[Rfam]
RNA sequence: AUCGUGCGGUUAUAUACCGACGCCCACAUUCGUGUUGCUCGCUUUUCGUUUUAUUUAUGUGGAAUGGUUUGAGCGUCAAACGUGGGCCAGAGUCAAUUGGACGUCUAAGUACCCAUACAGUGAUCUUAAAAAAUCUACUGUUCACUGUGGGUCGGUGGUUCAGAAAUGU
Dot-bracket structure: .....................((((((.........(((((...(((..............))).....))))).......)))))).........((((((.............((((((((.(..............).))))))))........))))))......
Numbered sequence: 001a002u003c004g005u006g007c008g009g010u011u012a013u014a015u016a017c018c019g020a021c022g023c024c025c026a027c028a029u030u031c032g033u034g035u036u037g038c039u040c041g042c043u044u045u046u047c048g049u050u051u052u053a054u055u056u057a058u059g060u061g062g063a064a065u066g067g068u069u070u071g072a073g074c075g076u077c078a079a080a081c082g083u084g085g086g087c088c089a090g091a092g093u094c095a096a097u098u099g100g101a102c103g104u105c106u107a108a109g110u111a112c113c114c115a116u117a118c119a120g121u122g123a124u125c126u127u128a129a130a131a132a133a134u135c136u137a138c139u140g141u142u143c144a145c146u147g148u149g150g151g152u153c154g155g156u157g158g159u160u161c162a163g164a165a166a167u168g169u
Stems, first nucleotide, its partner, number of pairs: 022087006037074005045064003097163006116149008125140001